[Rfam]
RNA: Heliobacter pylori small RNA HPnc0580
RNA sequence: UUGAUUUUGUAACGGUAGGAACUAUCGAAAGUUACGCCUGUCAGAUAUGAUAAGUGAAACCCUGCGAGGAUAAGAAGUUGGAGUUCGAACUCUGUAAAAUCCU
Numbered sequence: 001u002u003g004a005u006u007u008u009g010u011a012a013c014g015g016u017a018g019g020a021a022c023u024a025u026c027g028a029a030a031g032u033u034a035c036g037c038c039u040g041u042c043a044g045a046u047a048u049g050a051u052a053a054g055u056g057a058a059a060c061c062c063u064g065c066g067a068g069g070a071u072a073a074g075a076a077g078u079u080g081g082a083g084u085u086c087g088a089a090c091u092c093u094g095u096a097a098a099a100u101c102c103u
Stems, first nucleotide, its partner, number of pairs: 013027005031060003035056003039052005080093004
Dot-bracket structure: ............(((((.....)))))...(((.(((.(((((....))))).))).)))...................((((......))))..........